A member of the RNA family "Small nucleolar RNA snoR97" from Lactuca sativa, 108 nucleotides long. Pairs were carried over by alignment from the consensus structure, which was predicted with WAR.

[Rfam]
RNA sequence: AAUAUAUAAUGGGCUAGGGGUCUGAAAAAAUUGAGAGGAAUAUGUUGUCUAUCAGCUUCUUCUUUUGUAAUAUCAAUGAGAUUAGAGUUAAAUAAUAGCACAACAUAU
Numbered sequence: 001a002a003u004a005u006a007u008a009a010u011g012g013g014c015u016a017g018g019g020g021u022c023u024g025a026a027a028a029a030a031u032u033g034a035g036a037g038g039a040a041u042a043u044g045u046u047g048u049c050u051a052u053c054a055g056c057u058u059c060u061u062c063u064u065u066u067g068u069a070a071u072a073u074c075a076a077u078g079a080g081a082u083u084a085g086a087g088u089u090a091a092a093u094a095a096u097a098g099c100a101c102a103a104c105a106u107a108u
Stems, first nucleotide, its partner, number of pairs: 041102001043100005054089005061081004

Rfam classes the family as an H/ACA-box small nucleolar RNA. The organism belongs to Lactuca, within Eukaryota. On this family, see Marker et al., Curr Biol 2002: "Experimental RNomics: identification of 140 candidates for small non-messenger RNAs in the plant Arabidopsis thaliana".